[Rfam]
RNA sequence: UAUAUUUGCACCCGUCUAAAGUAGACAUACAUAAGAAUCAUUAAAUAAUAUUGGAAUG
Numbered sequence: 001u002a003u004a005u006u007u008g009c010a011c012c013c014g015u016c017u018a019a020a021g022u023a024g025a026c027a028u029a030c031a032u033a034a035g036a037a038u039c040a041u042u043a044a045a046u047a048a049u050a051u052u053g054g055a056a057u058g
Base pairs, nucleotide, nucleotide: 014026015025016024017023018022
This 58-nucleotide RNA belongs to the Rfam family "S15-Flavobacteria ribosomal protein leader". For this family Rfam cites "Discovery of 20 novel ribosomal leader candidates in bacteria and archaea" (Eckert and Weinberg, BMC Microbiol, 2020). The family's consensus secondary structure is taken from published work.